small nucleolar RNA snoR27: a 146-nucleotide RNA from Plasmodium knowlesi. It scores 122 bits against the family's covariance model. The base pairs follow the family's consensus structure, which was predicted with RNAalifold. The organism belongs to Plasmodium knowlesi, within Eukaryota. A reference for the family is Chakrabarti et al. (2007), "Structural RNAs of known and unknown function identified in malaria parasites by comparative genomics and RNA analysis", RNA.

RNA sequence: CCUGCUGAUUUAGCCACGGUGGACACUUUCAACUCGAAAAUGUUGUGUCAACUGCUAGAAAUCAGCUAAAAUAAUUUUCAUAAUUUUAGGAACCAUUGAAAGAAUUGAUUAAUUUUUUUUAGUGGGCCGUAUUUAUGAGCACAAUU
Numbered sequence: 001c002c003u004g005c006u007g008a009u010u011u012a013g014c015c016a017c018g019g020u021g022g023a024c025a026c027u028u029u030c031a032a033c034u035c036g037a038a039a040a041u042g043u044u045g046u047g048u049c050a051a052c053u054g055c056u057a058g059a060a061a062u063c064a065g066c067u068a069a070a071a072u073a074a075u076u077u078u079c080a081u082a083a084u085u086u087u088a089g090g091a092a093c094c095a096u097u098g099a100a101a102g103a104a105u106u107g108a109u110u111a112a113u114u115u116u117u118u119u120u121a122g123u124g125g126g127c128c129g130u131a132u133u134u135a136u137g138a139g140c141a142c143a144a145u146u
Base pairs, nucleotide, nucleotide: 004066005065006064007063008062009061010060011059017054018053019052020051022049023048024047025046077139078138079137080136081135089128090127093124098119099118100117101116102115103114104113105112106111